[Rfam]
RNA: Vault RNA
Organism: Coregonus sp. 'balchen'
RNA sequence: GCGCCAGCUUAGCUCAACGGUUACUACUUACUCCAAAGUUGCCACUCCUUGUCGGUCCGCCGGCUGAGGAGUCGAACCGUGGGCGCUGCCUGGCGUUUUU
Numbered sequence: 001g002c003g004c005c006a007g008c009u010u011a012g013c014u015c016a017a018c019g020g021u022u023a024c025u026a027c028u029u030a031c032u033c034c035a036a037a038g039u040u041g042c043c044a045c046u047c048c049u050u051g052u053c054g055g056u057c058c059g060c061c062g063g064c065u066g067a068g069g070a071g072u073c074g075a076a077c078c079g080u081g082g083g084c085g086c087u088g089c090c091u092g093g094c095g096u097u098u099u100u
Base pairs, nucleotide, nucleotide: 002095003094004093005092006091007090012084013083014082015081017080018079019078020077025071027069028068029067